[Rfam]
RNA sequence: UUGAUUUAAAUUAUUGUGGGUCUACAUUUUAAAAAUUGAACCAACACAAAGUGGUGAAACAUACAUUAAUUUUAUUCAA
Numbered sequence: 001u002u003g004a005u006u007u008a009a010a011u012u013a014u015u016g017u018g019g020g021u022c023u024a025c026a027u028u029u030u031a032a033a034a035a036u037u038g039a040a041c042c043a044a045c046a047c048a049a050a051g052u053g054g055u056g057a058a059a060c061a062u063a064c065a066u067u068a069a070u071u072u073u074a075u076u077c078a079a
Stems, first nucleotide, its partner, number of pairs: 001079004006074001008072006015065004023056002025053006
RNA: MIR5269 microRNA precursor family